[Rfam]
RNA sequence: GGACGGUGAAAGACAUGGGUAGUGAGACGUAGACAUUAGAAGUCGUGUCACUAUUCUGUUUUUCGCCGACCG
Numbered sequence: 001g002g003a004c005g006g007u008g009a010a011a012g013a014c015a016u017g018g019g020u021a022g023u024g025a026g027a028c029g030u031a032g033a034c035a036u037u038a039g040a041a042g043u044c045g046u047g048u049c050a051c052u053a054u055u056c057u058g059u060u061u062u063u064c065g066c067c068g069a070c071c072g
Stems, first nucleotide, its partner, number of pairs: 008064008017056003021052005027046003
mir-71 microRNA precursor family: a 72-nucleotide sequence from Acrobeloides nanus.
The base pairs follow the family's consensus structure, which was predicted with RNAalifold.
It scores 62 bits against the family's covariance model.
Lineage of the source: Eukaryota > Metazoa > Bilateria > Cephaloboidea > Acrobeloides.
A reference for the family is Li et al. (2009), "Direct sequencing and expression analysis of a large number of miRNAs in Aedes aegypti and a multi-species survey of novel mosquito miRNAs", BMC Genomics.